Source information: c-di-GMP-I riboswitch aptamer: a 78-nucleotide RNA sequence from Paraconexibacter algicola. On this family, see Weinberg et al., Nucleic Acids Res 2007: "Identification of 22 candidate structured RNAs in bacteria using the CMfinder comparative genomics pipeline". Taxonomically the source falls in Paraconexibacter (Bacteria, Bacillati, Actinomycetota, Paraconexibacteraceae).

[Rfam]
RNA sequence: CUCGGUCCAAGGCACACCCGUCGUGAGACGGGGUCGCAAAACCAGGGGCCUCCGCCCGGAGGUCGCCCAGUCGCCCGA
Numbered sequence: 001c002u003c004g005g006u007c008c009a010a011g012g013c014a015c016a017c018c019c020g021u022c023g024u025g026a027g028a029c030g031g032g033g034u035c036g037c038a039a040a041a042c043c044a045g046g047g048g049c050c051u052c053c054g055c056c057c058g059g060a061g062g063u064c065g066c067c068c069a070g071u072c073g074c075c076c077g078a
Stems, first nucleotide, its partner, number of pairs: 012037002017032006041071002045068003048063006